[Rfam]
RNA sequence: CUACGGACUUAAUUGGAUUGAGCCUUGGUAUGGAAACCUACUAAGUGAUAACUUUCAAAUUCAGAGAAACCUGGGAAUCAAAUAUGGGCAAUCCUGAGCCAAAUCCUGUUUUACGAGAAUAAAACAAAGCAAACAAGGGUUCAAAAAGCGAGAAAAUGGAUAGGUGCAGAGACUCAACGGAAGUUGUUCUAACAAAUGGAGUUGACUGCCUUUUUUGGGGAAAGAAAGGGAAAUUAAUCGAAUAUCGAAACUGCAUAAAGGAUGAAGGAUAAGUCUAUAAUACACUAUGGAUACAAAAUGAAAAAUUAUCUCAAAAAUGACAACCUGAAGCUGUAUUUAUAUUAAUGAAAAAGAAAACAAAAGAAUUGGGAUUCCAAGUUGAAGAAUCGAAUAUUCAUUGAUCAAAUCAUUCACUCCAUAGUCUAGUAGAUCGUUUCUUUUGAAGAACUGAUUACUCAGACGAGAAUAAAGAUAGAGUCCCAUUCUACAUGUCAAUAUAAA
Dot-bracket structure: ....(..((((((...)))))).).........................(((((.(....((((.(...((((...........))))...).))))((....((.....((.((.................................)).))....))....))...[.[[[[[...).))))).((((................................................................................................................................................................................................................................................................................))))........]]]]]].....((.((....)).))..
Numbered sequence: 001c002u003a004c005g006g007a008c009u010u011a012a013u014u015g016g017a018u019u020g021a022g023c024c025u026u027g028g029u030a031u032g033g034a035a036a037c038c039u040a041c042u043a044a045g046u047g048a049u050a051a052c053u054u055u056c057a058a059a060u061u062c063a064g065a066g067a068a069a070c071c072u073g074g075g076a077a078u079c080a081a082a083u084a085u086g087g088g089c090a091a092u093c094c095u096g097a098g099c100c101a102a103a104u105c106c107u108g109u110u111u112u113a114c115g116a117g118a119a120u121a122a123a124a125c126a127a128a129g130c131a132a133a134c135a136a137g138g139g140u141u142c143a144a145a146a147a148g149c150g151a152g153a154a155a156a157u158g159g160a161u162a163g164g165u166g167c168a169g170a171g172a173c174u175c176a177a178c179g180g181a182a183g184u185u186g187u188u189c190u191a192a193c194a195a196a197u198g199g200a201g202u203u204g205a206c207u208g209c210c211u212u213u214u215u216u217g218g219g220g221a222a223a224g225a226a227a228g229g230g231a232a233a234u235u236a237a238u239c240g241a242a243u244a245u246c247g248a249a250a251c252u253g254c255a256u257a258a259a260g261g262a263u264g265a266a267g268g269a270u271a272a273g274u275c276u277a278u279a280a281u282a283c284a285c286u287a288u289g290g291a292u293a294c295a296a297a298a299u300g301a302a303a304a305a306u307u308a309u310c311u312c313a314a315a316a317a318u319g320a321c322a323a324c325c326u327g328a329a330g331c332u333g334u335a336u337u338u339a340u341a342u343u344a345a346u347g348a349a350a351a352a353g354a355a356a357a358c359a360a361a362a363g364a365a366u367u368g369g370g371a372u373u374c375c376a377a378g379u380u381g382a383a384g385a386a387u388c389g390a391a392u393a394u395u396c397a398u399u400g401a402u403c404a405a406a407u408c409a410u411u412c413a414c415u416c417c418a419u420a421g422u423c424u425a426g427u428a429g430a431u432c433g434u435u436u437c438u439u440u441u442g443a444a445g446a447a448c449u450g451a452u453u454a455c456u457c458a459g460a461c462g463a464g465a466a467u468a469a470a471g472a473u474a475g476a477g478u479c480c481c482a483u484u485c486u487a488c489a490u491g492u493c494a495a496u497a498u499a500a501a
Stems, first nucleotide, its partner, number of pairs: 005024001008022006050185005056179001061097004066092001070088004098165002104159002111153002114150002169480001171479005187466004486499002489496002
Group I catalytic intron: a 501-nucleotide sequence from Acer saccharum.
Its family is annotated with Group I intron splicing in the Gene Ontology.
The source organism's lineage runs through Eukaryota, Spermatophyta, eudicotyledons, malvids and Acer.
The match comes from Rfam's covariance-model search (108 bits).
Group I catalytic introns are large self-splicing ribozymes. They catalyse their own excision from mRNA, tRNA and rRNA precursors in a wide range of organisms.
The literature on the family includes a 1990 paper in Annu Rev Biochem by Cech, "Self-splicing of group I introns".